[Rfam]
RNA: TPP riboswitch aptamer (THI element)
Organism: Aureimonas sp. Leaf460
Nucleotides: 105
Base pairs, nucleotide, nucleotide: 006093007092009090010089011055012054013053014052017028018027019026020025035048036047037046038045061086062085063084067080068079069078070077
Number, partner (000 for none) and nucleotide at each position: 001000c002000u003000u004000g005000c006093u007092c008000a009090c010089a011055c012054g013053g014052g015000g016000u017028g018027c019026c020025c021000a022000u023000u024000c025020g026019g027018g028017c029000u030000g031000a032000g033000a034000g035048g036047c037046g038045a039000g040000g041000a042000u043000c044000a045038u046037c047036g048035c049000c050000a051000a052014c053013c054012c055011g056000a057000c058000g059000a060000a061086c062085c063084u064000g065000a066000u067080c068079c069078g070077g071000c072000u073000c074000g075000u076000a077070c078069c079068g080067g081000c082000g083000g084063a085062g086061g087000g088000a089010u090009g091000g092007g093006g094000a095000g096000c097000g098000g099000u100000c101000c102000g103000c104000g105000c